[Rfam]
RNA sequence: AAUUGUUACAGCUCUUUUAGAAUUUGUCUAGCAGGUUUUCUGUUUUUUUUGUUUUUGUUUUUUGGGUUUUGUUUUGUUUUGUUUUACUGAAAAACCCCC
Numbered sequence: 001a002a003u004u005g006u007u008a009c010a011g012c013u014c015u016u017u018u019a020g021a022a023u024u025u026g027u028c029u030a031g032c033a034g035g036u037u038u039u040c041u042g043u044u045u046u047u048u049u050u051g052u053u054u055u056u057g058u059u060u061u062u063u064g065g066g067u068u069u070u071g072u073u074u075u076g077u078u079u080u081g082u083u084u085u086a087c088u089g090a091a092a093a094a095c096c097c098c099c
Base pairs, nucleotide, nucleotide: 034096035095036094037093038092039091041089042087043086
A member of the RNA family "U7 small nuclear RNA" from Mandrillus leucophaeus, 99 nucleotides long. A search with the family's covariance model found it, with a score of 41 bits.